[Rfam]
RNA sequence: UUUGUGGGGAAUGUUGUCUGGCACGAGGUCAACAAUUCUUGCCCAUUAAAAUUUUUCUGAAACAAAACCCUAAUGUCAAAUAUGUGCACACAUAGCCAGUUAAUUAGUGUUCUCGGACCAGGCUUCAUUCCCCUCAAC
Number, nucleotide and partner (000 for none) at each position: 001u000002u137003u136004g135005u000006g133007g132008g131009g130010a129011a128012u127013g126014u000015u000016g123017u122018c121019u120020g119021g118022c000023a000024c115025g114026a113027g112028g111029u000030c000031a000032a000033c000034a000035a000036u000037u000038c000039u000040u000041g000042c000043c000044c000045a000046u000047u000048a000049a000050a000051a000052u000053u000054u000055u000056u000057c000058u000059g000060a000061a000062a000063c000064a000065a000066a000067a000068c000069c000070c000071u000072a000073a000074u000075g000076u000077c000078a000079a000080a000081u000082a000083u000084g000085u000086g000087c000088a000089c000090a000091c000092a000093u000094a000095g000096c000097c000098a000099g000100u000101u000102a000103a000104u000105u000106a000107g000108u000109g000110u000111u028112c027113u026114c025115g024116g000117a000118c021119c020120a019121g018122g017123c016124u000125u000126c013127a012128u011129u010130c009131c008132c007133c006134u000135c004136a003137a002138c000
mir-166 microRNA precursor family: a 138-nucleotide sequence from Rhamnella rubrinervis.
For this family Rfam cites "MicroRNAs in plants" (Reinhart et al., Genes Dev, 2002).
Rfam's curators write: This family represents the plant microRNA (miRNA) precursor mir-166.